A member of the RNA family "Small nucleolar RNA R16" from Corymbia citriodora, 88 nucleotides long. By type it is a C/D-box small nucleolar RNA. Pairs were carried over by alignment from the consensus structure, which was predicted with PFOLD.
[Rfam]
RNA sequence: GGUGGCAAGUGAUGAUUUUCGUGAAUCUUAUCCUACACACUGAUGCGCAGUGCUGACUAUAUUACUCUGCUUAUUGUCUGAUGCCUCA
Numbered sequence: 001g002g003u004g005g006c007a008a009g010u011g012a013u014g015a016u017u018u019u020c021g022u023g024a025a026u027c028u029u030a031u032c033c034u035a036c037a038c039a040c041u042g043a044u045g046c047g048c049a050g051u052g053c054u055g056a057c058u059a060u061a062u063u064a065c066u067c068u069g070c071u072u073a074u075u076g077u078c079u080g081a082u083g084c085c086u087c088a
Stems, first nucleotide, its partner, number of pairs: 004085004

It scores 60 bits against the family's covariance model.